[Rfam]
RNA sequence: GGGCCCGUGGCUCAACCUGGGAGAGCAUCCGUCGGUUACCGGUUUUUCCGGACCGGAUGAAGCUCUUAUUGCCAGGGGAAACCGGACGGUUGUGGGUUCGAAUCCCACCGGGCCCG
Numbered sequence: 001g002g003g004c005c006c007g008u009g010g011c012u013c014a015a016c017c018u019g020g021g022a023g024a025g026c027a028u029c030c031g032u033c034g035g036u037u038a039c040c041g042g043u044u045u046u047u048c049c050g051g052a053c054c055g056g057a058u059g060a061a062g063c064u065c066u067u068a069u070u071g072c073c074a075g076g077g078g079a080a081a082c083c084g085g086a087c088g089g090u091u092g093u094g095g096g097u098u099c100g101a102a103u104c105c106c107a108c109c110g111g112g113c114c115c116g
Stems, first nucleotide, its partner, number of pairs: 001115007010026004028086004092108005
This 116-nucleotide RNA from candidate division MSBL1 archaeon SCGC-AAA259E19 belongs to the Rfam family "tRNA". A search with the family's covariance model found it, with a score of 47 bits. By type it is a transfer RNA. NCBI's taxonomy places the organism under Archaea, Methanobacteriati, Methanobacteriota, candidate division MSBL1. The base pairs follow the family's consensus structure, which is taken from published work.